[Rfam]
Rfam assigns this 96-nucleotide RNA from Serratia proteamaculans to the family "sraA".
RNA sequence: UGGUUAAUGAGUAUAUGGGGAUGAAUCUCUUACAUUCAACGGCAAGAACGCAGGAAAUAAAAAUGGGGGAUAAAAUCCCCCAUUUUGACAUUAACU
Numbered sequence: 001u002g003g004u005u006a007a008u009g010a011g012u013a014u015a016u017g018g019g020g021a022u023g024a025a026u027c028u029c030u031u032a033c034a035u036u037c038a039a040c041g042g043c044a045a046g047a048a049c050g051c052a053g054g055a056a057a058u059a060a061a062a063a064u065g066g067g068g069g070a071u072a073a074a075a076u077c078c079c080c081c082a083u084u085u086u087g088a089c090a091u092u093a094a095c096u
Base pairs, nucleotide, nucleotide: 008038010036011035012034016032017031018030019029020028061085062084063083064082065081066080067079068078069077070076071075
The base pairs follow the family's consensus structure, which was predicted with RNAalifold. It is one of the family's seed sequences. For this family Rfam cites "A survey of small RNA-encoding genes in Escherichia coli" (Hershberg et al., Nucleic Acids Res, 2003). The family's RNA type in Rfam is small RNA.